Shown here is a 388-nucleotide sequence from Ignavibacterium sp., a member of the family "Bacterial RNase P class A". By type it is a ribozyme.
RNA sequence: AAAUAAAUCCGGGCAGUCGCUUCCCGAUAAAUCGGGAGGAGGAAAGUCCGAACUUUACAGAACAGAGUGCCGGGUAACACCCGGGUACCCCUAAAUAUUGGGGUAACUGAAAGUGCCACAGAAAAAAUACCGCCCCGGUUUUCGGGGUAAGGGUGAAAAGGUGGGGUAAGAGCUCACCGCUCCGAUAGUAAUAUCGGAGGCACGGUAAACCACACUCGAAGCAAGAUCAAGUAUGAAAGGAUUUCCGGUUUUAAAUCGGAUAAGAGUUGUUCGCUCUGUUUACCUUUCGGGUAGAUCGCUGGAUCAUAAUAGUAAUAUUAUGACAAGAUAAAUGGCUGCCGCCCCGACCUUACGGGGUUACAGAAUUCGGCUUACAGGAUAUUUAUAU
Numbered sequence: 001a002a003a004u005a006a007a008u009c010c011g012g013g014c015a016g017u018c019g020c021u022u023c024c025c026g027a028u029a030a031a032u033c034g035g036g037a038g039g040a041g042g043a044a045a046g047u048c049c050g051a052a053c054u055u056u057a058c059a060g061a062a063c064a065g066a067g068u069g070c071c072g073g074g075u076a077a078c079a080c081c082c083g084g085g086u087a088c089c090c091c092u093a094a095a096u097a098u099u100g101g102g103g104u105a106a107c108u109g110a111a112a113g114u115g116c117c118a119c120a121g122a123a124a125a126a127a128u129a130c131c132g133c134c135c136c137g138g139u140u141u142u143c144g145g146g147g148u149a150a151g152g153g154u155g156a157a158a159a160g161g162u163g164g165g166g167u168a169a170g171a172g173c174u175c176a177c178c179g180c181u182c183c184g185a186u187a188g189u190a191a192u193a194u195c196g197g198a199g200g201c202a203c204g205g206u207a208a209a210c211c212a213c214a215c216u217c218g219a220a221g222c223a224a225g226a227u228c229a230a231g232u233a234u235g236a237a238a239g240g241a242u243u244u245c246c247g248g249u250u251u252u253a254a255a256u257c258g259g260a261u262a263a264g265a266g267u268u269g270u271u272c273g274c275u276c277u278g279u280u281u282a283c284c285u286u287u288c289g290g291g292u293a294g295a296u297c298g299c300u301g302g303a304u305c306a307u308a309a310u311a312g313u314a315a316u317a318u319u320a321u322g323a324c325a326a327g328a329u330a331a332a333u334g335g336c337u338g339c340c341g342c343c344c345c346g347a348c349c350u351u352a353c354g355g356g357g358u359u360a361c362a363g364a365a366u367u368c369g370g371c372u373u374a375c376a377g378g379a380u381a382u383u384u385a386u387a388u
Stems, first nucleotide, its partner, number of pairs: 001386001003384001005382001007380004011375001012340007020039008044373003048370005053221004060272004065217005070084005085107001086105006108212002113210002115206003130152002132148007160178006179201001180199008225297004235288006263277005304323008
About the family: Ribonuclease P (RNase P) is a ubiquitous endoribonuclease, found in archaea, bacteria and eukarya as well as chloroplasts and mitochondria.